[Rfam]
RNA sequence: UUCUUAUUAGAUGAUGAUUGACACGUGUCAUGUGUUUUGAUGAGAUGUUAACUCCAUGAAAGAUGAAUGCAUUGCUAUUUUCAUUAACCAAUUAGAACAUGACAUGUGACAGUCAUCAUCC
Numbered sequence: 001u002u003c004u005u006a007u008u009a010g011a012u013g014a015u016g017a018u019u020g021a022c023a024c025g026u027g028u029c030a031u032g033u034g035u036u037u038u039g040a041u042g043a044g045a046u047g048u049u050a051a052c053u054c055c056a057u058g059a060a061a062g063a064u065g066a067a068u069g070c071a072u073u074g075c076u077a078u079u080u081u082c083a084u085u086a087a088c089c090a091a092u093u094a095g096a097a098c099a100u101g102a103c104a105u106g107u108g109a110c111a112g113u114c115a116u117c118a119u120c121c
Stems, first nucleotide, its partner, number of pairs: 020110001022108002025105002029101003035097004040092002
Rfam assigns this 121-nucleotide sequence from Glycine soja to the family "MIR1520 microRNA precursor family". The family has 18 seed sequences and 1,934 matches in Rfam 15.1. The base pairs follow the family's consensus structure, which was predicted with RNAalifold. The match comes from Rfam's covariance-model search (101 bits).